[Rfam]
RNA sequence: CUGGGCGCCUGGAAACGGGCGCUGAAAACCGUGGAGAAGUCAGCAGAAGGCAUAGUAGGCGGCGCCCCCGCCGAAGGUU
Numbered sequence: 001c002u003g004g005g006c007g008c009c010u011g012g013a014a015a016c017g018g019g020c021g022c023u024g025a026a027a028a029c030c031g032u033g034g035a036g037a038a039g040u041c042a043g044c045a046g047a048a049g050g051c052a053u054a055g056u057a058g059g060c061g062g063c064g065c066c067c068c069c070g071c072c073g074a075a076g077g078u079u
Stems, first nucleotide, its partner, number of pairs: 002026001004023008040047002049079003058072005
RNA: Group II catalytic intron D1-D4-1